Rfam assigns this 163-nucleotide RNA from Geobacillus sp. Y412MC61 to the family "SAM riboswitch aptamer (S box leader)". The literature on the family includes a 1998 paper in Mol Microbiol by Grundy and Henkin, "The S box regulon: a new global transcription termination control system for methionine and cysteine biosynthesis genes in gram-positive bacteria". NCBI's taxonomy places the organism under Bacteria, Bacillota, Caryophanales, Anoxybacillaceae, Geobacillus.
RNA sequence: UUAUCAAGAGUUGGCUGAGGGAAUUGGCCCAAUGAAGCCCAGCAACCGACCGUAAUGCUAUCGUGAGAUAGGGCGCACGCCAAGGGCGGCGCCGGAAGCGUCAUGCUUCCGCAGGGCACGGUGCUAAGUCCAACAGAAAGACCGAUGUCUUUCUGAAAGAUAA
Numbered sequence: 001u002u003a004u005c006a007a008g009a010g011u012u013g014g015c016u017g018a019g020g021g022a023a024u025u026g027g028c029c030c031a032a033u034g035a036a037g038c039c040c041a042g043c044a045a046c047c048g049a050c051c052g053u054a055a056u057g058c059u060a061u062c063g064u065g066a067g068a069u070a071g072g073g074c075g076c077a078c079g080c081c082a083a084g085g086g087c088g089g090c091g092c093c094g095g096a097a098g099c100g101u102c103a104u105g106c107u108u109c110c111g112c113a114g115g116g117c118a119c120g121g122u123g124c125u126a127a128g129u130c131c132a133a134c135a136g137a138a139a140g141a142c143c144g145a146u147g148u149c150u151u152u153c154u155g156a157a158a159g160a161u162a163a
Stems, first nucleotide, its partner, number of pairs: 001163005010040001013039003019030003024133004041125004046121002048117001050115002129158001134155008